About this RNA: Rfam assigns this 71-nucleotide sequence from Nezara viridula to the family "Small nucleolar RNA SNORD79". Clan: SNORD74 clan. It scores 53 bits against the family's covariance model. A reference for the family is Galardi et al. (2002), "Purified box C/D snoRNPs are able to reproduce site-specific 2'-O-methylation of target RNA in vitro", Mol Cell Biol. Its family is annotated with RNA processing and nucleolus in the Gene Ontology.
[Rfam]
RNA sequence: UGCUGUAAGUGAGGAUAAAUUUGAGGGAAUCUCUCUGAAAUAAAUGAAGACAUUAUUUUUCUGAUACAGCU
Numbered sequence: 001u002g003c004u005g006u007a008a009g010u011g012a013g014g015a016u017a018a019a020u021u022u023g024a025g026g027g028a029a030u031c032u033c034u035c036u037g038a039a040a041u042a043a044a045u046g047a048a049g050a051c052a053u054u055a056u057u058u059u060u061c062u063g064a065u066a067c068a069g070c071u
Stems, first nucleotide, its partner, number of pairs: 002070006
About the family: snoRNA U79 or Z22 is found in intron 7 of the gas5 gene in humans and is also present in mice. The source organism's lineage runs through Eukaryota, Mandibulata, Pancrustacea, Pentatomidae and Nezara.